Description: Shown here is a 117-nucleotide RNA sequence from Tumebacillus algifaecis, a member of the family "SAM riboswitch aptamer (S box leader)". NCBI's taxonomy places the organism under Bacteria, Bacillota, Bacilli, Caryophanales, Tumebacillus. The match comes from Rfam's covariance-model search (89 bits).

[Rfam]
RNA sequence: CUUUCAUCAAGAGAGGUGGAGGGUCUGGCCCUGUGAAGCCCGGCAACCGUCAGUUCGUGUGGCAAUGAACUGAAAUGGUGCCAAUUCCUGCGAAACUAUUGUUUCGGCAGAUGAAAG
Dot-bracket structure: ((((((((....(.(((...(((.[.[[)))......))))((((.((.((((((((........))))))))...))))))...(]].]((((((....))))))..)))))))))
Numbered sequence: 001c002u003u004u005c006a007u008c009a010a011g012a013g014a015g016g017u018g019g020a021g022g023g024u025c026u027g028g029c030c031c032u033g034u035g036a037a038g039c040c041c042g043g044c045a046a047c048c049g050u051c052a053g054u055u056c057g058u059g060u061g062g063c064a065a066u067g068a069a070c071u072g073a074a075a076u077g078g079u080g081c082c083a084a085u086u087c088c089u090g091c092g093a094a095a096c097u098a099u100u101g102u103u104u105c106g107g108c109a110g111a112u113g114a115a116a117g
Stems, first nucleotide, its partner, number of pairs: 001117008013041001015040003021031003025090001027088002042082004047078002050073008086109001091106006